[Rfam]
This 109-nucleotide RNA sequence from Gaoshiqia sediminis belongs to the Rfam family "SAM riboswitch aptamer (S box leader)". A reference for the family is Grundy and Henkin (1998), "The S box regulon: a new global transcription termination control system for methionine and cysteine biosynthesis genes in gram-positive bacteria", Mol Microbiol. The base pairs follow the family's consensus structure, which is taken from published work.
RNA sequence: UGAUUAUAGCGAAGAGCGGAGAGAUCGGGCUCAGCGAAACUCUGGCAACCAUCCUUUUCAGUUGAGCAGGAACGGUGCCAAAACCCGGCCGGAAACGGAAUUAUAAUUG
Numbered sequence: 001u002g003a004u005u006a007u008a009g010c011g012a013a014g015a016g017c018g019g020a021g022a023g024a025u026c027g028g029g030c031u032c033a034g035c036g037a038a039a040c041u042c043u044g045g046c047a048a049c050c051a052u053c054c055u056u057u058u059c060a061g062u063u064g065a066g067c068a069g070g071a072a073c074g075g076u077g078c079c080a081a082a083a084c085c086c087g088g089c090c091g092g093a094a095a096c097g098g099a100a101u102u103a104u105a106a107u108u109g
Stems, first nucleotide, its partner, number of pairs: 001109008013043004021032003026088001028086001029084001044079004049075002052071004083101001089098003
The organism belongs to Gaoshiqia, within Bacteria.